[Rfam]
RNA sequence: CGCCACAAACCCGUAGAUCCGAACUUGUGGUGACUGGCCUCACAAGCUCGUGUCUAUAGGUCUGUGUUAG
Numbered sequence: 001c002g003c004c005a006c007a008a009a010c011c012c013g014u015a016g017a018u019c020c021g022a023a024c025u026u027g028u029g030g031u032g033a034c035u036g037g038c039c040u041c042a043c044a045a046g047c048u049c050g051u052g053u054c055u056a057u058a059g060g061u062c063u064g065u066g067u068u069a070g
Stems, first nucleotide, its partner, number of pairs: 002068001004066004010060002015055004020050003024046006